RNA sequence: CCGGGCGCCUGAUGGGCCCGGCCUUGAGACGGGCACCGGUCGUGUCCGGUGCCGCUCGUAUCCAACUUGCUCCAUGGAGGAUUUGGCUAUGCGCA
Numbered sequence: 001c002c003g004g005g006c007g008c009c010u011g012a013u014g015g016g017c018c019c020g021g022c023c024u025u026g027a028g029a030c031g032g033g034c035a036c037c038g039g040u041c042g043u044g045u046c047c048g049g050u051g052c053c054g055c056u057c058g059u060a061u062c063c064a065a066c067u068u069g070c071u072c073c074a075u076g077g078a079g080g081a082u083u084u085g086g087c088u089a090u091g092c093g094c095a
Stems, first nucleotide, its partner, number of pairs: 001021006008015002030054001032053008055093001057091004062086004067081002070079003

Rfam assigns this 95-nucleotide RNA from Bradyrhizobium sp. LMTR 3 to the family "Repression of heat shock gene expression (ROSE) element". Rfam's curators write: This family represents a 5' UTR cis-regulatory element found in heat shock mRNAs and is known as the ROSE (repression of heat shock gene expression) element. The ROSE element is a negative regulator of heat shock gene expression. The secondary structure is thought to be regulated by temperature. This regulation blocks access to the ribosome binding site under normal conditions. During heat shock however, the structure changes freeing the ribosome binding site and allowing expression to occur. The family has 13 seed sequences and 381 matches in Rfam 15.1. The match comes from Rfam's covariance-model search (84 bits).